RNA: tRNA
Organism: Rhodothermus marinus
RNA sequence: UGCCCGGUAGCUUAACUGGCAGAGCACCUGACUCUGGAUCAGGGGGUUGGAGGUUCGAGUCCUCCCCGGGCAG
Numbered sequence: 001u002g003c004c005c006g007g008u009a010g011c012u013u014a015a016c017u018g019g020c021a022g023a024g025c026a027c028c029u030g031a032c033u034c035u036g037g038a039u040c041a042g043g044g045g046g047u048u049g050g051a052g053g054u055u056c057g058a059g060u061c062c063u064c065c066c067c068g069g070g071c072a073g
Base pairs, nucleotide, nucleotide: 001072002071003070004069005068006067007066010025011024012023013022027043028042029041030040031039049065050064051063052062053061